[Rfam]
RNA sequence: ACCCCAUGAUAUUAAGCCGGCAGGUGCUUGCAAUCCCCACGGGCACCUGUGACUAUGAUUGGGAACAACAAAGCUGCUGAUGUGUGUAUGUUGGGCAGCGCUGUGAUCUUGCGCGCUUGACAAAGAUUUUUCGGUCGACA
Numbered sequence: 001a002c003c004c005c006a007u008g009a010u011a012u013u014a015a016g017c018c019g020g021c022a023g024g025u026g027c028u029u030g031c032a033a034u035c036c037c038c039a040c041g042g043g044c045a046c047c048u049g050u051g052a053c054u055a056u057g058a059u060u061g062g063g064a065a066c067a068a069c070a071a072a073g074c075u076g077c078u079g080a081u082g083u084g085u086g087u088a089u090g091u092u093g094g095g096c097a098g099c100g101c102u103g104u105g106a107u108c109u110u111g112c113g114c115g116c117u118u119g120a121c122a123a124a125g126a127u128u129u130u131u132c133g134g135u136c137g138a139c140a
Base pairs, nucleotide, nucleotide: 020050021049022048023047024046025045026044027043077134078133079132080131089122090121091120092119093118094117095116098114099113100112101111
RNA: Small nucleolar RNA snoR639/H1